Shown here is a 100-nucleotide sequence from Flavobacterium sp. FPG59, a member of the family "Flavo-1 RNA". The base pairs follow the family's consensus structure, which is taken from published work. It is annotated as a small RNA.
RNA sequence: UCGUAGCCCCGAUGGAAGCGGCAUCUCCCGAUUUAGAAAAACAAGGCUUUUUUGCCGUAGUUUUUAUUUAUCGGGAAUAUAGCGUACAGCGGGACAAGUA
Numbered sequence: 001u002c003g004u005a006g007c008c009c010c011g012a013u014g015g016a017a018g019c020g021g022c023a024u025c026u027c028c029c030g031a032u033u034u035a036g037a038a039a040a041a042c043a044a045g046g047c048u049u050u051u052u053u054g055c056c057g058u059a060g061u062u063u064u065u066a067u068u069u070a071u072c073g074g075g076a077a078u079a080u081a082g083c084g085u086a087c088a089g090c091g092g093g094a095c096a097a098g099u100a
Stems, first nucleotide, its partner, number of pairs: 009092003013088002018083002023078002027075006
Dot-bracket structure: ........(((.((...((...((..((((((.....................................)))))).))...))...)).)))........